Rfam assigns this 176-nucleotide RNA sequence from Fukomys damarensis to the family "Small Cajal body specific RNA 16".
[Rfam]
RNA sequence: ACGGUCCGGGGAAAGGCUCCUGUGUGGCUGUGCCGGGCGCAGCCUCCUGUACCAGGCAGCCUCACCCUGACCUAGAGUAAAUCCCCGGGGACUGUGCCCUGGGUUUUGAAUUUGCAGUAACAGGUGUGAACAUUCUAGCAGCAGUUUGAUGGUCAUGUAUGAUACUGCAAACAGGA
Numbered sequence: 001a002c003g004g005u006c007c008g009g010g011g012a013a014a015g016g017c018u019c020c021u022g023u024g025u026g027g028c029u030g031u032g033c034c035g036g037g038c039g040c041a042g043c044c045u046c047c048u049g050u051a052c053c054a055g056g057c058a059g060c061c062u063c064a065c066c067c068u069g070a071c072c073u074a075g076a077g078u079a080a081a082u083c084c085c086c087g088g089g090g091a092c093u094g095u096g097c098c099c100u101g102g103g104u105u106u107u108g109a110a111u112u113u114g115c116a117g118u119a120a121c122a123g124g125u126g127u128g129a130a131c132a133u134u135c136u137a138g139c140a141g142c143a144g145u146u147u148g149a150u151g152g153u154c155a156u157g158u159a160u161g162a163u164a165c166u167g168c169a170a171a172c173a174g175g176a
Stems, first nucleotide, its partner, number of pairs: 003072004008067003015061004019056004024052002026044005032038002084103003087099003091095001111171009121161002127155003131151004137146003

Gene Ontology terms of the family: nucleolus and RNA processing. Rfam's curators write: scaRNAs are a specific class of small nuclear RNAs which localise to the Cajal bodies and guide the modification of RNA polymerase II transcribed spliceosomal RNAs U1, U2, U4, U5 and U12. ACA47 belongs to the H/ACA box class of guide RNAs as it has the predicted hairpin-hinge-hairpin-tail structure, the conserved H/ACA-box motifs and is found associated with GAR1. ACA47 is predicted to guide the pseudouridylation of residue U5 of the U1 spliceosomal snRNA. The family's RNA type in Rfam is small Cajal body RNA. The organism belongs to Fukomys, within Eukaryota.